[Rfam]
RNA sequence: GUUAUCCUUCGGGGUAGGUGAAAUUCCUAACCGGCGGUGAUGAAGUUUAAACUUCUAAGCCCGUGACCCGGUUUACAUUUUUUGUAAAACGGUGGAUUUGGUGAGAAACCAAAGCCGACAGUAAAGUCUGGAUGGGAGAAGGAUUAU
Dot-bracket structure: ...(((((((.....(((.......))).[[((((((.....................[[))))...((.....................))....(((((.......)))))]])).(((....]]))).......)))))))...